A member of the RNA family "Glycine riboswitch aptamer" from Cellulomonas fimi, 92 nucleotides long.
Gene Ontology term of the family: glycine biosynthetic process.

RNA sequence: CGAACCGACGCGGGAGAGCUCCGGCCACGGCCGGACGCCGAAGGAGCAACCCUCCCCGGGAAUCUCUCAGGCCCCUGUACCGCGACGGCGAG
Numbered sequence: 001c002g003a004a005c006c007g008a009c010g011c012g013g014g015a016g017a018g019c020u021c022c023g024g025c026c027a028c029g030g031c032c033g034g035a036c037g038c039c040g041a042a043g044g045a046g047c048a049a050c051c052c053u054c055c056c057c058g059g060g061a062a063u064c065u066c067u068c069a070g071g072c073c074c075c076u077g078u079a080c081c082g083c084g085a086c087g088g089c090g091a092g
Stems, first nucleotide, its partner, number of pairs: 006087002009084005020035004037072003040068002044066003050059002